The record is a 94-nucleotide sequence from Drancourtella sp. An57, which matches "Selenocysteine transfer RNA" in Rfam.
A reference for the family is Mizutani and Goto (2000), "Eukaryotic selenocysteine tRNA has the 9/4 secondary structure", FEBS Lett.
The match comes from Rfam's covariance-model search (69 bits).
Rfam links the family to the GO term triplet codon-amino acid adaptor activity.
The family's consensus secondary structure is taken from published work.
[Rfam]
RNA sequence: GGAGGUAGAUGAGUAACUGGUGUGCUUCCUGGUCUUCAAAACCAGUGUAGGGCGUUAGGAGCGUCCUGGGUGGGUUCGAUUCCCACAUGCCUCC
Numbered sequence: 001g002g003a004g005g006u007a008g009a010u011g012a013g014u015a016a017c018u019g020g021u022g023u024g025c026u027u028c029c030u031g032g033u034c035u036u037c038a039a040a041a042c043c044a045g046u047g048u049a050g051g052g053c054g055u056u057a058g059g060a061g062c063g064u065c066c067u068g069g070g071u072g073g074g075u076u077c078g079a080u081u082c083c084c085a086c087a088u089g090c091c092u093c094c
Stems, first nucleotide, its partner, number of pairs: 001094007008086001011027005017022001029045005048068005071085004